Small nucleolar RNA snR8: a 157-nucleotide sequence from Nadsonia fulvescens. The base pairs follow the family's consensus structure, which was predicted with WAR. Clan: SNORA56 clan. The match comes from Rfam's covariance-model search (99 bits). Gene Ontology terms of the family: nucleolus and RNA processing. NCBI's taxonomy places the organism under Eukaryota, Fungi, Dipodascomycetes, Nadsonia fulvescens, Nadsonia fulvescens var. elongata. By type it is an H/ACA-box small nucleolar RNA.
RNA sequence: UUUUUCUUUGAUACGAACGCCUUCUAUUCACUGCACCGUUUAAUUAAUAAACGAUUGGAGGGGAAAAGAACGGCUAGAAGAAAUUCAAUUACCACCUCAUACCCUACAUGCUCAAAACUUUUACGCAUAUUUUGGUAACUGGGUCAUUGAAACACAC
Numbered sequence: 001u002u003u004u005u006c007u008u009u010g011a012u013a014c015g016a017a018c019g020c021c022u023u024c025u026a027u028u029c030a031c032u033g034c035a036c037c038g039u040u041u042a043a044u045u046a047a048u049a050a051a052c053g054a055u056u057g058g059a060g061g062g063g064a065a066a067a068g069a070a071c072g073g074c075u076a077g078a079a080g081a082a083a084u085u086c087a088a089u090u091a092c093c094a095c096c097u098c099a100u101a102c103c104c105u106a107c108a109u110g111c112u113c114a115a116a117a118c119u120u121u122u123a124c125g126c127a128u129a130u131u132u133u134g135g136u137a138a139c140u141g142g143g144u145c146a147u148u149g150a151a152a153c154a155c156a157c
Stems, first nucleotide, its partner, number of pairs: 019074002022070002031060002034057002037053005084151005091144003102135002106131001108128004